A member of the RNA family "RNase MRP" from Cloeon dipterum, 228 nucleotides long. NCBI's taxonomy places the organism under Eukaryota, Ecdysozoa, Pterygota, Ephemeroptera, Cloeon. Rfam describes the family as follows. RNase MRP is an enzymatically active ribonucleoprotein with two distinct roles in eukaryotes. In mitochondria it plays a direct role in the initiation of mitochondrial DNA replication. In the nucleus it is involved in precursor rRNA processing, where it cleaves the internal transcribed spacer 1 between 18S and 5.8S rRNAs.

RNA sequence: GCAGAUGGGGGCGCAUUGCUAUCCAAGGUUUCUUUGGAGGAAAGUCCCCGGAUCAAGGUCAGAGAGUCUCAUGGCUCAAGGUCAUCGACCCGUGACAUCGCUAUGCUAUGGAGUGGAAGGGGUCAAACCUGGAUCCGCAGCUUGGUGGUCGCGUGGUGCUUGUCAAAGCAAAGUCAUGCAAUGGGCCCAAGCAGGGCUUACUUAACGGGGCUUAUCACCCUUCAUCUG
Numbered sequence: 001g002c003a004g005a006u007g008g009g010g011g012c013g014c015a016u017u018g019c020u021a022u023c024c025a026a027g028g029u030u031u032c033u034u035u036g037g038a039g040g041a042a043a044g045u046c047c048c049c050g051g052a053u054c055a056a057g058g059u060c061a062g063a064g065a066g067u068c069u070c071a072u073g074g075c076u077c078a079a080g081g082u083c084a085u086c087g088a089c090c091c092g093u094g095a096c097a098u099c100g101c102u103a104u105g106c107u108a109u110g111g112a113g114u115g116g117a118a119g120g121g122g123u124c125a126a127a128c129c130u131g132g133a134u135c136c137g138c139a140g141c142u143u144g145g146u147g148g149u150c151g152c153g154u155g156g157u158g159c160u161u162g163u164c165a166a167a168g169c170a171a172a173g174u175c176a177u178g179c180a181a182u183g184g185g186c187c188c189a190a191g192c193a194g195g196g197c198u199u200a201c202u203u204a205a206c207g208g209g210g211c212u213u214a215u216c217a218c219c220c221u222u223c224a225u226c227u228g
Stems, first nucleotide, its partner, number of pairs: 002228007009220003014183006022038007042213003046210004058070001061067001071085004075080001087157001089155001091153006100146004109137004120130004185197004
The family has 66 seed sequences and 3,510 matches in Rfam 15.1.